[Rfam]
RNA sequence: UUACCGGCGGUCUCUAAUUCGCUUGGUGCAGGUCGGGAACUGAUUGGCUUUUCUAUUUCUAAUGAUUUCCAGGCGGCGAAAAGUUAUUGGUCAAGAUUAGAUGGAAAGUGAAUUGGAUCCCGCCUUGCAUCAACUGAAUCGAAGACCGGGGUGAAG
Numbered sequence: 001u002u003a004c005c006g007g008c009g010g011u012c013u014c015u016a017a018u019u020c021g022c023u024u025g026g027u028g029c030a031g032g033u034c035g036g037g038a039a040c041u042g043a044u045u046g047g048c049u050u051u052u053c054u055a056u057u058u059c060u061a062a063u064g065a066u067u068u069c070c071a072g073g074c075g076g077c078g079a080a081a082a083g084u085u086a087u088u089g090g091u092c093a094a095g096a097u098u099a100g101a102u103g104g105a106a107a108g109u110g111a112a113u114u115g116g117a118u119c120c121c122g123c124c125u126u127g128c129a130u131c132a133a134c135u136g137a138a139u140c141g142a143a144g145a146c147c148g149g150g151g152u153g154a155a156g
Base pairs, nucleotide, nucleotide: 013143017139018138019137020136023133024132025131026130027129028128029127030126031125032124034122035121036120037119038118040116041115042114043113044112045111
Dot-bracket structure: ............(...((((..((((((((((.(((((.((((((.................................................................)))))).))))).))))))))))..))))...).............

This 156-nucleotide RNA sequence from Ricinus communis belongs to the Rfam family "MIR168 microRNA precursor family". For this family Rfam cites "MicroRNAs in plants" (Reinhart et al., Genes Dev, 2002). Rfam's curators put it in the seed alignment. The source organism's lineage runs through Eukaryota, Streptophytina, eudicotyledons, Acalypheae and Ricinus.